[Rfam]
Record summary
This 188-nucleotide sequence from Lysobacter sp. A03 belongs to the Rfam family "6S / SsrS RNA". The match comes from Rfam's covariance-model search (76 bits). Rfam describes the family as follows. E. coli 6S RNA was the first non coding RNA to be sequenced, but its function was unknown until recently. The base pairs follow the family's consensus structure, which is taken from published work. Taxonomically the source falls in Lysobacter (Bacteria, Pseudomonadota, Gammaproteobacteria, Lysobacteraceae).

RNA sequence: CGUCCUCUGCUGUGGACGACAGCGUGCGCAAACAUUCGCCUUGGCCCUUAAUUGCGACCGCGGGGAUGCAACGGAAGUCCGGAGUGCAAGUCCGCCCUGGUAGCGGAAAGCCCGAAGACCGACAAGCGUUCCCACUUGAACCCCGGGUUCAAGGUCGUUUCGCGCGCAUCGACAUCGGCGGAGGAUCU
Numbered sequence: 001c002g003u004c005c006u007c008u009g010c011u012g013u014g015g016a017c018g019a020c021a022g023c024g025u026g027c028g029c030a031a032a033c034a035u036u037c038g039c040c041u042u043g044g045c046c047c048u049u050a051a052u053u054g055c056g057a058c059c060g061c062g063g064g065g066a067u068g069c070a071a072c073g074g075a076a077g078u079c080c081g082g083a084g085u086g087c088a089a090g091u092c093c094g095c096c097c098u099g100g101u102a103g104c105g106g107a108a109a110g111c112c113c114g115a116a117g118a119c120c121g122a123c124a125a126g127c128g129u130u131c132c133c134a135c136u137u138g139a140a141c142c143c144c145g146g147g148u149u150c151a152a153g154g155u156c157g158u159u160u161c162g163c164g165c166g167c168a169u170c171g172a173c174a175u176c177g178g179c180g181g182a183g184g185a186u187c188u
Base pairs, nucleotide, nucleotide: 002186003185004184005183006182007181008180009179010178011177012175013174014173017171018170019169038155039154040153042151043150044149046147047146062133063132064131066129067128068127069126074123077120080117086111087110091107092106093105094104095103